[Rfam]
Nucleotides: 203
Base pairs, nucleotide, nucleotide: 001111002110003109010105011104012103013102014101015100016099017098022038024037025036026035027034039090040089041088045086046084047083048082052077053076054075055074057072058071059070060069061068062067114201115200116199117198118197123139125138126137127136128135140189141188142187146185148182149181
Number, partner (000 for none) and nucleotide at each position: 001111g002110c003109g004000g005000a006000u007000g008000a009000g010105a011104a012103u013102a014101a015100g016099g017098g018000g019000a020000g021000a022038g023000a024037u025036u026035g027034u028000a029000g030000u031000g032000a033000u034027a035026c036025a037024a038022c039090g040089c041088c042000g043000a044000a045086g046084g047083a048082g049000c050000a051000a052077g053076c054075u055074u056000a057072u058071g059070a060069u061068a062067a063000u064000g065000u066000g067062u068061u069060a070059u071058u072057a073000a074055a075054a076053g077052c078000g079000a080000a081000u082048c083047u084046c085000u086045c087000a088041g089040g090039c091000a092000a093000a094000a095000a096000g097000a098017c099016u100015c101014u102013u103012a104011u105010u106000u107000g108000a109003c110002g111001c112000a113000g114201c115200u116199c117198u118197g119000g120000a121000g122000a123139g124000u125138g126137c127136u128135c129000a130000c131000g132000a133000g134000c135128g136127a137126g138125c139123c140189a141188c142187c143000c144000a145000c146185g147000a148182a149181g150000a151000c152000a153000c154000u155000a156000u157000a158000u159000u160000c161000g162000u163000c164000u165000a166000u167000u168000c169000g170000a171000a172000u173000g174000u175000a176000g177000g178000a179000a180000a181149c182148u183000u184000u185146c186000u187142g188141g189140u190000u191000a192000a193000a194000g195000g196000a197118c198117a199116g200115g201114g202000u203000u